Enterobacteria rnk leader: a 108-nucleotide RNA sequence from Klebsiella variicola. Rfam's curators put it in the seed alignment. Gene Ontology term of the family: regulation of gene expression.
RNA sequence: GGGCGUUGCACGCUGAAUGUGCGUUUCAUCACUUCAAACUACCGGCAACUCUCAGUAUGAUGGUAGGACCUUAACCCUUGCCCUUUUCGGCGAGGGUUUUCUUUUACG
Numbered sequence: 001g002g003g004c005g006u007u008g009c010a011c012g013c014u015g016a017a018u019g020u021g022c023g024u025u026u027c028a029u030c031a032c033u034u035c036a037a038a039c040u041a042c043c044g045g046c047a048a049c050u051c052u053c054a055g056u057a058u059g060a061u062g063g064u065a066g067g068a069c070c071u072u073a074a075c076c077c078u079u080g081c082c083c084u085u086u087u088c089g090g091c092g093a094g095g096g097u098u099u100u101c102u103u104u105u106a107c108g
Base pairs, nucleotide, nucleotide: 015035016034017033019032020031021030073098074097075096076095077094078093079092080091081090082089
Dot-bracket structure: ..............(((.(((........)))))).....................................((((((((((......))))))))))..........